[Rfam]
RNA sequence: AACGAUAGCACGGGGUGCCUGCAAAGGCUGAGAUUAUACCCGCUACCUGAUUUGGAUAAUGCCAACGUAGGGAUGCACUUAAGAGCGAUA
Number, nucleotide and partner (000 for none) at each position: 001a000002a000003c000004g000005a000006u000007a000008g076009c075010a074011c042012g041013g040014g039015g000016u036017g028018c027019c026020u025021g000022c000023a000024a000025a020026g019027g018028c017029u000030g000031a000032g000033a000034u000035u000036a016037u000038a000039c014040c013041c012042g011043c000044u000045a000046c071047c070048u069049g068050a000051u000052u065053u064054g063055g062056a000057u000058a000059a000060u000061g000062c055063c054064a053065a052066c000067g000068u049069a048070g047071g046072g000073a000074u010075g009076c008077a000078c000079u000080u000081a000082a000083g000084a000085g000086c000087g000088a000089u000090a000
The family of this 90-nucleotide RNA from Flavobacterium akiainvivens is "TPP riboswitch aptamer (THI element)".
It scores 64 bits against the family's covariance model.
Gene Ontology term of the family: thiamine pyrophosphate binding.
The base pairs follow the family's consensus structure, which is taken from published work.